[Rfam]
Nucleotides: 090
Base pairs, nucleotide, nucleotide: 001090003088004087005086014077015076016075017074018073019072020071021070022069023068024066026064027063028062029061030060031059032058033057034056035055
Number, partner (000 for none) and nucleotide at each position: 001090g002000g003088u004087g005086g006000c007000c008000u009000u010000g011000c012000u013000g014077u015076a016075g017074c018073a019072g020071c021070a022069c023068g024066u025000a026064a027063a028062u029061a030060u031059u032058g033057g034056a035055g036000u037000u038000u039000a040000c041000a042000c043000u044000g045000u046000c047000u048000c049000u050000a051000a052000c053000g054000c055035c056034u057033c058032c059031a060030a061029u062028a063027u064026u065000g066024a067000u068023c069022g070021u071020g072019u073018u074017g075016c076015u077014g078000a079000a080000g081000c082000a083000a084000a085000a086005c087004u088003g089000a090001c
A member of the RNA family "mir-15 microRNA precursor family" from Muraenolepis orangiensis, 90 nucleotides long. About the family: This family represents the related mir-15a and mir-15b sequences. In humans miR-15a and miR-16 are clustered within 0.5 kb at 13q14. This region has been shown to be deleted in more than half of B cell chronic lymphocytic leukaemias (CLL). Both miR-15a and miR-16 are deleted or down-regulated in more than two thirds of CLL cases. The organism belongs to Muraenolepis, within Eukaryota. Its family is annotated with RISC complex and miRNA-mediated post-transcriptional gene silencing in the Gene Ontology. The family is grouped with related families in Rfam's "mir-15 clan".